[Rfam]
RNA sequence: GGAGCAGUUUCUGGAGAGAGCGCGGGCUACGCGUCGCCGAAGGGUUCAUAAUCUCAGGCAAAAGGACAGAAGAGUAAUG
Numbered sequence: 001g002g003a004g005c006a007g008u009u010u011c012u013g014g015a016g017a018g019a020g021c022g023c024g025g026g027c028u029a030c031g032c033g034u035c036g037c038c039g040a041a042g043g044g045u046u047c048a049u050a051a052u053c054u055c056a057g058g059c060a061a062a063a064g065g066a067c068a069g070a071a072g073a074g075u076a077a078u079g
Stems, first nucleotide, its partner, number of pairs: 008072006020034004036059003039055002043053003
Annotation
The record is a 79-nucleotide sequence from Lysinibacillus sp. 2017, which matches "Glycine riboswitch aptamer" in Rfam. Taxonomically the source falls in Lysinibacillus (Bacteria, Bacillati, Bacilli, Bacillaceae). The family is grouped with related families in Rfam's "Glycine riboswitch clan". About the family: This family represents the bacterial glycine riboswitch.